[Rfam]
RNA sequence: UCUUUCUCCCAUACCCAUUGCAUAUUGGAGCUGUGAAUUCUCAAAGCACCUCCUGUAUGCAUGGAUUACAGGAGGA
Numbered sequence: 001u002c003u004u005u006c007u008c009c010c011a012u013a014c015c016c017a018u019u020g021c022a023u024a025u026u027g028g029a030g031c032u033g034u035g036a037a038u039u040c041u042c043a044a045a046g047c048a049c050c051u052c053c054u055g056u057a058u059g060c061a062u063g064g065a066u067u068a069c070a071g072g073a074g075g076a
Stems, first nucleotide, its partner, number of pairs: 002075006015064004020060006027053004032048003
This 76-nucleotide sequence from Jaculus jaculus belongs to the Rfam family "mir-660 microRNA precursor family".
The match comes from Rfam's covariance-model search (98 bits).